Shown here is a 129-nucleotide RNA sequence from Candidatus Protofrankia californiensis, a member of the family "ALIL pseudoknot". On this family, see Mazauric et al., J Biol Chem 2008: "Apical loop-internal loop RNA pseudoknots: a new type of stimulator of -1 translational frameshifting in bacteria". A search with the family's covariance model found it, with a score of 67 bits. The family has 26 seed sequences and 2,146 matches in Rfam 15.1. The source organism's lineage runs through Bacteria, Bacillati, Actinomycetota, Actinomycetes and Protofrankia. Pairs were carried over by alignment from the consensus structure, which is taken from published work.

RNA sequence: GGCUUUCUUCGCGGCGGAGCUCGACCGCCCGCGCCGGUAGUCGUCGACUAUAUCGACAGACACAAGGAACGGUUCGGGGUCGAGCCGAUCUGUGCCGUGCUGAAGGACGCCGGUAUCCAGAUCGCCCCG
Numbered sequence: 001g002g003c004u005u006u007c008u009u010c011g012c013g014g015c016g017g018a019g020c021u022c023g024a025c026c027g028c029c030c031g032c033g034c035c036g037g038u039a040g041u042c043g044u045c046g047a048c049u050a051u052a053u054c055g056a057c058a059g060a061c062a063c064a065a066g067g068a069a070c071g072g073u074u075c076g077g078g079g080u081c082g083a084g085c086c087g088a089u090c091u092g093u094g095c096c097g098u099g100c101u102g103a104a105g106g107a108c109g110c111c112g113g114u115a116u117c118c119a120g121a122u123c124g125c126c127c128c129g
Stems, first nucleotide, its partner, number of pairs: 013029005075129005086124002089121004